This 183-nucleotide sequence from Shewanella pealeana belongs to the Rfam family "Lysine riboswitch aptamer".

RNA sequence: AAGUGCAGAAGAGGAGCGUUAACUAGGUAGUAAGUUUGAGGGGACCAAAACCCUUUGAUGACUUAUGAGGGAGAUUAACGCCGAGAUAUUUAAAGCCAUUUGGACGGGCUUGAAUGUUGGUUGUACAGGCUGAAUCCUGUCGAUUGUCACCUAUGUUUAUUAUGGUGGAGAGCUUCUGGUGAC
Numbered sequence: 001a002a003g004u005g006c007a008g009a010a011g012a013g014g015a016g017c018g019u020u021a022a023c024u025a026g027g028u029a030g031u032a033a034g035u036u037u038g039a040g041g042g043g044a045c046c047a048a049a050a051c052c053c054u055u056u057g058a059u060g061a062c063u064u065a066u067g068a069g070g071g072a073g074a075u076u077a078a079c080g081c082c083g084a085g086a087u088a089u090u091u092a093a094a095g096c097c098a099u100u101u102g103g104a105c106g107g108g109c110u111u112g113a114a115u116g117u118u119g120g121u122u123g124u125a126c127a128g129g130c131u132g133a134a135u136c137c138u139g140u141c142g143a144u145u146g147u148c149a150c151c152u153a154u155g156u157u158u159a160u161u162a163u164g165g166u167g168g169a170g171a172g173c174u175u176c177u178g179g180u181g182a183c
Base pairs, nucleotide, nucleotide: 006178007177008176009175010174011173016081017080018079019078020077021076022075024073030066031065032064033063034062035061036060085118086117087116088115089114090113091112092111093110095109096108097107119145120144121143122142125140126139127138128137129136147168148167149166150165151164

Rfam links the family to the GO term lysine biosynthetic process.